[Rfam]
RNA: DUF805b RNA
RNA sequence: UAUGCGGAAGCCGAAAAGCAAAAAGAGUAGGUG
Numbered sequence: 001u002a003u004g005c006g007g008a009a010g011c012c013g014a015a016a017a018g019c020a021a022a023a024a025g026a027g028u029a030g031g032u033g
Stems, first nucleotide, its partner, number of pairs: 003020003010032003